[Rfam]
RNA sequence: UUUCCACCAGUACACAAAAAUACGAGAGAGAGGUGAGCAUUAUGUUUAUGGAUGAAGUGGUAUUUGCUGGUUUAGCCAUUGUAGGGCUGACUUGUGCUUUUUUUGUAGGCUUUUACCUGGCCGUUAAAAAUGACAUCAAAAAGCACGGCACCGGCGAAUAACUAACGCUUUUAAAACCGGGUGCCACGCUCGCAGUCGUGACAUCUGAGGUUGUUUCCUUUUCUG
Dot-bracket structure: ..........(((...........................................(((.....)))................(.(......).).........)))...........................................................((.......................))......((((.(....).))))..........

The family of this 225-nucleotide sequence from Bacterioplanoides sp. SCSIO 12839 is "PhrS". A reference for the family is Livny et al. (2006), "Identification of 17 Pseudomonas aeruginosa sRNAs and prediction of sRNA-encoding genes in 10 diverse pathogens using the bioinformatic tool sRNAPredict2", Nucleic Acids Res. The family's consensus secondary structure was predicted with CMfinder.